RNA sequence: CGGUGCUUUGUGAAGGCCUGGUCUGAAAGCUCCUGAUUGGGCAAGGCCAGGCCUGAUGUCAUCACUG
Number, nucleotide and partner (000 for none) at each position: 001c067002g066003g065004u064005g063006c000007u000008u000009u000010g000011u000012g000013a000014a000015g053016g052017c051018c050019u049020g048021g047022u046023c045024u044025g000026a000027a000028a000029g000030c041031u040032c039033c000034u000035g000036a000037u000038u000039g032040g031041g030042c000043a000044a024045g023046g022047c021048c020049a019050g018051g017052c016053c015054u000055g000056a000057u000058g000059u000060c000061a000062u000063c005064a004065c003066u002067g001
Shown here is a 67-nucleotide sequence from Synaphobranchus kaupii, a member of the family "Selenocysteine insertion sequence 1". The match comes from Rfam's covariance-model search (39 bits). Pairs were carried over by alignment from the consensus structure, which is taken from published work. The family's RNA type in Rfam is cis-regulatory element.